[Rfam]
RNA sequence: AGUGGCUCAUUCACCUUACUAUGACAGCCCUGCGAAAGCGGCCAAGCGCUUCAUAAAACUCCGAAUGACGCACAAUACGGUGCCUGCCGUCCACAUAACCGAUAAUCGUUGGCUUUGCCACGUUAUCAAGCAUCGGGCGCAACGUUGAGUUAGGCACCACCUA
Numbered sequence: 001a002g003u004g005g006c007u008c009a010u011u012c013a014c015c016u017u018a019c020u021a022u023g024a025c026a027g028c029c030c031u032g033c034g035a036a037a038g039c040g041g042c043c044a045a046g047c048g049c050u051u052c053a054u055a056a057a058a059c060u061c062c063g064a065a066u067g068a069c070g071c072a073c074a075a076u077a078c079g080g081u082g083c084c085u086g087c088c089g090u091c092c093a094c095a096u097a098a099c100c101g102a103u104a105a106u107c108g109u110u111g112g113c114u115u116u117g118c119c120a121c122g123u124u125a126u127c128a129a130g131c132a133u134c135g136g137g138c139g140c141a142a143c144g145u146u147g148a149g150u151u152a153g154g155c156a157c158c159a160c161c162u163a
Stems, first nucleotide, its partner, number of pairs: 005071002007068006020055005026050003079158007088139005101127005141151003
RNA: Glm Y RNA activator of glmS mRNA
Organism: Paramixta manurensis